[Rfam]
RNA sequence: AUAUGUCUUCAGGGCAGGGUGUAAUUCCCGACCGGUGGUAAAGUCCACGAGCUUACAAAUGUAAGUUGACUUGGUGCAAUUCCAAGACCGACAGUAUAGUCUGGAUGGAAGAAGCGAUAA
Number, nucleotide and partner (000 for none) at each position: 001a000002u000003a118004u117005g000006u000007c114008u113009u112010c111011a000012g000013g000014g000015c000016a000017g029018g028019g027020u000021g000022u000023a000024a000025u000026u000027c019028c018029c017030g000031a100032c099033c090034g089035g048036u047037g046038g045039u000040a000041a000042a000043g088044u087045c038046c037047a036048c035049g000050a000051g066052c065053u064054u000055a000056c000057a000058a000059a000060u000061g000062u000063a000064a053065g052066u051067u000068g000069a000070c086071u085072u084073g083074g082075u000076g000077c000078a000079a000080u000081u000082c074083c073084a072085a071086g070087a044088c043089c034090g033091a000092c103093a102094g101095u000096a000097u000098a000099g032100u031101c094102u093103g092104g000105a000106u000107g000108g000109a000110a000111g010112a009113a008114g007115c000116g000117a004118u003119a000120a000

The record is a 120-nucleotide RNA from Falseniella ignava, which matches "FMN riboswitch aptamer (RFN element)" in Rfam. The source organism's lineage runs through Bacteria, Bacillota, Aerococcaceae, Falseniella and Falseniella ignava. Rfam links the family to the GO term FMN binding. The RFN element is a highly conserved domain that is found frequently in the 5'-untranslated regions of prokaryotic mRNAs that encode for flavin mononucleotide (FMN) biosynthesis and transport proteins.